[Rfam]
RNA sequence: AUACCACCAGGGGGGUCAUUGUAAAAGCGCGCUCGUCGCGACCCCUGCCAGCCCUUUUCAGGGCUGCAAUUCUAGA
Numbered sequence: 001a002u003a004c005c006a007c008c009a010g011g012g013g014g015g016u017c018a019u020u021g022u023a024a025a026a027g028c029g030c031g032c033u034c035g036u037c038g039c040g041a042c043c044c045c046u047g048c049c050a051g052c053c054c055u056u057u058u059c060a061g062g063g064c065u066g067c068a069a070u071u072c073u074a075g076a
Stems, first nucleotide, its partner, number of pairs: 012045006020076001022074002025071002027039003049066007